The record is a 62-nucleotide RNA from Tupaia belangeri, which matches "Gag/pol translational readthrough site" in Rfam. The base pairs follow the family's consensus structure, which is taken from published work. The literature on the family includes a 1994 paper in EMBO J by Wills et al., "Pseudoknot-dependent read-through of retroviral gag termination codons: importance of sequences in the spacer and loop 2". Rfam links the family to the GO term viral translational readthrough. The family's RNA type in Rfam is cis-regulatory element. Lineage of the source: Eukaryota > Craniata > Boreoeutheria > Euarchontoglires > Tupaia belangeri.

Nucleotides: 062
Base pairs, nucleotide, nucleotide: 008041010039012036013035014034015033016031018029019028022060023059024058025057026056027055
Number, partner (000 for none) and nucleotide at each position: 001000u002000a003000g004000g005000g006000g007000a008041g009000a010039u011000g012036g013035g014034g015033c016031u017000c018029g019028g020000a021000g022060c023059c024058c025057c026056u027055c028019c029018c030000u031016g032000a033015g034014c035013c036012u037000a038000g039010g040000g041008u042000a043000a044000c045000u046000c047000u048000u049000a050000a051000g052000g053000u054000a055027g056026a057025g058024g059023g060022g061000a062000a